[Rfam]
RNA sequence: CAACCUUUGCACACUCUGGCCCUUACCGUCCCUUCCCGCCUUCGGGCUUGGAUUGGACCUUUAUCCCCCGUGGUAUAGGCUUAUUUUUCGCAAAGAAGAUAAAUCUCCGACCCGCUACUCACCGCGGUAACCUCUGUGGCAGGCUUGCUUGCCCUGGUGGUUACAGUGGUCCAUGUUUUCGGUCAACAU
Numbered sequence: 001c002a003a004c005c006u007u008u009g010c011a012c013a014c015u016c017u018g019g020c021c022c023u024u025a026c027c028g029u030c031c032c033u034u035c036c037c038g039c040c041u042u043c044g045g046g047c048u049u050g051g052a053u054u055g056g057a058c059c060u061u062u063a064u065c066c067c068c069c070g071u072g073g074u075a076u077a078g079g080c081u082u083a084u085u086u087u088u089c090g091c092a093a094a095g096a097a098g099a100u101a102a103a104u105c106u107c108c109g110a111c112c113c114g115c116u117a118c119u120c121a122c123c124g125c126g127g128u129a130a131c132c133u134c135u136g137u138g139g140c141a142g143g144c145u146u147g148c149u150u151g152c153c154c155u156g157g158u159g160g161u162u163a164c165a166g167u168g169g170u171c172c173a174u175g176u177u178u179u180c181g182g183u184c185a186a187c188a189u
Stems, first nucleotide, its partner, number of pairs: 007093003018081004024075004029057003109184004122169004127164006
Small nucleolar RNA snR80: a 189-nucleotide sequence from Aspergillus chevalieri. Clan: SNORA28 clan. A reference for the family is Schattner et al. (2004), "Genome-wide searching for pseudouridylation guide snoRNAs: analysis of the Saccharomyces cerevisiae genome", Nucleic Acids Res. Its family is annotated with RNA processing and nucleolus in the Gene Ontology. Taxonomically the source falls in Aspergillus subgen. Aspergillus (Eukaryota, saccharomyceta, Pezizomycotina, Eurotiomycetidae). The match comes from Rfam's covariance-model search (46 bits).